[Rfam]
RNA sequence: CGGGGACUUCCGCCGAGUCCGACAUCGCUCGGAGCCGGGGAACCACAUCUCCGGGGUGAAUCGGUGCGAGGGCUGCCCUGACGGGUGGUGACGCGUCGUAGGGCAGCUUCCGGCCCGAACCCGACAGCUCACCCGGUAGGCGGCCGGAGGAAGAAGGA
Numbered sequence: 001c002g003g004g005g006a007c008u009u010c011c012g013c014c015g016a017g018u019c020c021g022a023c024a025u026c027g028c029u030c031g032g033a034g035c036c037g038g039g040g041a042a043c044c045a046c047a048u049c050u051c052c053g054g055g056g057u058g059a060a061u062c063g064g065u066g067c068g069a070g071g072g073c074u075g076c077c078c079u080g081a082c083g084g085g086u087g088g089u090g091a092c093g094c095g096u097c098g099u100a101g102g103g104c105a106g107c108u109u110c111c112g113g114c115c116c117g118a119a120c121c122c123g124a125c126a127g128c129u130c131a132c133c134c135g136g137u138a139g140g141c142g143g144c145c146g147g148a149g150g151a152a153g154a155a156g157g158a
Stems, first nucleotide, its partner, number of pairs: 011142004018033005034137006044053001054122003062098007101116004
Dot-bracket structure: ..........((((...(((((......)))))((((((....(........)(((.....(((((((.......................)))))))..((((........))))...))).........)))))).))))................